[Rfam]
The family of this 75-nucleotide RNA sequence from Cnephaeus nilssonii is "Small nucleolar RNA SNORD113/SNORD114 family".
RNA sequence: UGGACCAAUGAUGAUCCCUGAUGGCAUAUGAAGGAGGUACUAUGAUUGCUAUGUGUCUGGAAGUCUGAGGUCCAA
Numbered sequence: 001u002g003g004a005c006c007a008a009u010g011a012u013g014a015u016c017c018c019u020g021a022u023g024g025c026a027u028a029u030g031a032a033g034g035a036g037g038u039a040c041u042a043u044g045a046u047u048g049c050u051a052u053g054u055g056u057c058u059g060g061a062a063g064u065c066u067g068a069g070g071u072c073c074a075a
Stems, first nucleotide, its partner, number of pairs: 002073005

Gene Ontology terms of the family: RNA processing and nucleolus. It is annotated as a C/D-box small nucleolar RNA. The family's consensus secondary structure is taken from published work. NCBI's taxonomy places the organism under Eukaryota, Gnathostomata, Theria, Boreoeutheria, Cnephaeus.